[Rfam]
RNA sequence: CUCUGGAUUCGGUAAGAAUGCAGGGCAGAAGGAG
Numbered sequence: 001c002u003c004u005g006g007a008u009u010c011g012g013u014a015a016g017a018a019u020g021c022a023g024g025g026c027a028g029a030a031g032g033a034g
Stems, first nucleotide, its partner, number of pairs: 001025005007019003
The family of this 34-nucleotide RNA sequence from Bacillus sp. SJS is "L31-Firmicutes ribosomal protein leader". Pairs were carried over by alignment from the consensus structure, which is taken from published work. For this family Rfam cites "Discovery of 20 novel ribosomal leader candidates in bacteria and archaea" (Eckert and Weinberg, BMC Microbiol, 2020). Rfam's curators put it in the seed alignment. Taxonomically the source falls in Bacillus (Bacteria, Bacillota, Bacilli, Caryophanales). The family is grouped with related families in Rfam's "Ribosomal Protein L31 Leader clan". The family's RNA type in Rfam is cis-regulatory leader.